The record is a 90-nucleotide RNA sequence from Gossypium barbadense, which matches "MIR164 microRNA precursor family" in Rfam.
[Rfam]
RNA sequence: UGGAGAAGGGGAGCACGUGCAAAUUACAUUUUUGACAUGUACCAAAGCUUACAUAGAAUGUACAACUUGCACGUGCCCUGCUUCUCCAAC
Numbered sequence: 001u002g003g004a005g006a007a008g009g010g011g012a013g014c015a016c017g018u019g020c021a022a023a024u025u026a027c028a029u030u031u032u033u034g035a036c037a038u039g040u041a042c043c044a045a046a047g048c049u050u051a052c053a054u055a056g057a058a059u060g061u062a063c064a065a066c067u068u069g070c071a072c073g074u075g076c077c078c079u080g081c082u083u084c085u086c087c088a089a090c
Stems, first nucleotide, its partner, number of pairs: 001088008010079002013076010024065001

It scores 65 bits against the family's covariance model.
The literature on the family includes a 2002 paper in Genes Dev by Reinhart et al., "MicroRNAs in plants".
Pairs were carried over by alignment from the consensus structure, which was predicted with RNAalifold.